The record is a 79-nucleotide RNA sequence from Lutibacter agarilyticus, which matches "Flavo-1 RNA" in Rfam. The family's consensus secondary structure is taken from published work. It scores 58 bits against the family's covariance model.

[Rfam]
RNA sequence: UUUUUGCGUGAGGGAUUGCAGUGAAAAUCCUUUUGGCGCGGCACAAGCCAAAAGAUUGCAACGUAAAGCCCGACCCUUG
Dot-bracket structure: ...........(((.((...((...((((..((((((.........)))))).))))...))...)).)))........
Numbered sequence: 001u002u003u004u005u006g007c008g009u010g011a012g013g014g015a016u017u018g019c020a021g022u023g024a025a026a027a028u029c030c031u032u033u034u035g036g037c038g039c040g041g042c043a044c045a046a047g048c049c050a051a052a053a054g055a056u057u058g059c060a061a062c063g064u065a066a067a068g069c070c071c072g073a074c075c076c077u078u079g
Stems, first nucleotide, its partner, number of pairs: 012071003016067002021062002026057004032052006